[Rfam]
A member of the RNA family "Pseudomonas sRNA P9" from Rhizobium sp. AC44/96, 84 nucleotides long. The base pairs follow the family's consensus structure, which was predicted with RNAalifold. By type it is a non-coding RNA gene. Rfam's curators write: This small RNA (sRNA) was computationally identified in the genome of the opportunistic pathogen Pseudomonas aeruginosa and its expression verified by northern blot analysis. P9 appears to be conserved in several Pseudomonas species in addition to Bordetella spp. In both Pseudomonas and Bordetella spp P9 appears to be located upstream of a predicted threonine dehydratase gene. P9 has a predicted Rho independent terminator at the 3' end but the function of P9 is unknown. This sRNA also appears to be present in the Betaproteobacteria (Burkholderia and Ralstonia species). For this family Rfam cites "Identification of 17 Pseudomonas aeruginosa sRNAs and prediction of sRNA-encoding genes in 10 diverse pathogens using the bioinformatic tool sRNAPredict2" (Livny et al., Nucleic Acids Res, 2006). The organism belongs to Rhizobium, within Bacteria.
RNA sequence: CUGAUUAUUAUCGCCGUCCAAUCGACGGUGGGUUAGCGCGCGUCCGGAUUUCCGAACUGCAACCCGCCCAUGGAGGCGGGUUUU
Numbered sequence: 001c002u003g004a005u006u007a008u009u010a011u012c013g014c015c016g017u018c019c020a021a022u023c024g025a026c027g028g029u030g031g032g033u034u035a036g037c038g039c040g041c042g043u044c045c046g047g048a049u050u051u052c053c054g055a056a057c058u059g060c061a062a063c064c065c066g067c068c069c070a071u072g073g074a075g076g077c078g079g080g081u082u083u084u
Stems, first nucleotide, its partner, number of pairs: 011031007061082008